Source information
Shown here is a 93-nucleotide RNA from Clostridium bornimense, a member of the family "NiCo (Nickel/Cobalt) riboswitch aptamer". Taxonomically the source falls in Clostridium (Bacteria, Bacillati, Clostridia, Clostridiaceae). The family is grouped with related families in Rfam's "NiCo_riboswitches".

[Rfam]
RNA sequence: ACAGUACAAACUGAUCAAGCCGAUGAAUAAAAAUUUUAUUCAUGGAGCCGGGCCAUAUUUGGCAACAGGUUAACAUAUGCCUGUGGGACAGUA
Numbered sequence: 001a002c003a004g005u006a007c008a009a010a011c012u013g014a015u016c017a018a019g020c021c022g023a024u025g026a027a028u029a030a031a032a033a034u035u036u037u038a039u040u041c042a043u044g045g046a047g048c049c050g051g052g053c054c055a056u057a058u059u060u061g062g063c064a065a066c067a068g069g070u071u072a073a074c075a076u077a078u079g080c081c082u083g084u085g086g087g088a089c090a091g092u093a
Stems, first nucleotide, its partner, number of pairs: 010092004016087001019048002023043006052063004065084006
Dot-bracket structure: .........((((..(..((..((((((.........))))))...))...((((....)))).((((((........))))))..).)))).